[Rfam]
Record summary:
Shown here is a 36-nucleotide RNA from Aquimarina amphilecti, a member of the family "DUF805b RNA". The match comes from Rfam's covariance-model search (37 bits). Taxonomically the source falls in Aquimarina (Bacteria, Pseudomonadati, Bacteroidota, Flavobacteriaceae). It is annotated as a cis-regulatory element.
RNA sequence: CAGGCGUAAACCGAAAAGCCUUCAAUAGAGUAAGAU
Numbered sequence: 001c002a003g004g005c006g007u008a009a010a011c012c013g014a015a016a017a018g019c020c021u022u023c024a025a026u027a028g029a030g031u032a033a034g035a036u
Stems, first nucleotide, its partner, number of pairs: 002021004011034001